[Rfam]
RNA sequence: GUGAUUUCGGCAACGGCCUACCUCCUCCCGGGCCUUGUCGGAUACGGUCGACCUUCACCUCCUCCCGAUUGUCGACCGACCUAUAGAAACACCCGCCGAACCUCCUCCCUCGGCGGGUGUUUUCU
Numbered sequence: 001g002u003g004a005u006u007u008c009g010g011c012a013a014c015g016g017c018c019u020a021c022c023u024c025c026u027c028c029c030g031g032g033c034c035u036u037g038u039c040g041g042a043u044a045c046g047g048u049c050g051a052c053c054u055u056c057a058c059c060u061c062c063u064c065c066c067g068a069u070u071g072u073c074g075a076c077c078g079a080c081c082u083a084u085a086g087a088a089a090c091a092c093c094c095g096c097c098g099a100a101c102c103u104c105c106u107c108c109c110u111c112g113g114c115g116g117g118u119g120u121u122u123u124c125u
Stems, first nucleotide, its partner, number of pairs: 007041003011037003015033001017031001046077007055068001089120011
RNA: Alphaproteobacterial ar14